[Rfam]
RNA sequence: GUAAAAAAAUCCCCACAGGAUUUCCUGUGGGGUGCCUCUAUACGUAUACUUUCGUACAUGUAAGAUGGCAAUGGGAGAGGAGAAACCGGAGGAAGAACUUAUGGGGAAACGUAAGUCUUCUCCACGG
Numbered sequence: 001g002u003a004a005a006a007a008a009a010u011c012c013c014c015a016c017a018g019g020a021u022u023u024c025c026u027g028u029g030g031g032g033u034g035c036c037u038c039u040a041u042a043c044g045u046a047u048a049c050u051u052u053c054g055u056a057c058a059u060g061u062a063a064g065a066u067g068g069c070a071a072u073g074g075g076a077g078a079g080g081a082g083a084a085a086c087c088g089g090a091g092g093a094a095g096a097a098c099u100u101a102u103g104g105g106g107a108a109a110c111g112u113a114a115g116u117c118u119u120c121u122c123c124a125c126g127g
Stems, first nucleotide, its partner, number of pairs: 011032009037075005047062003051058001088123003092120004097116005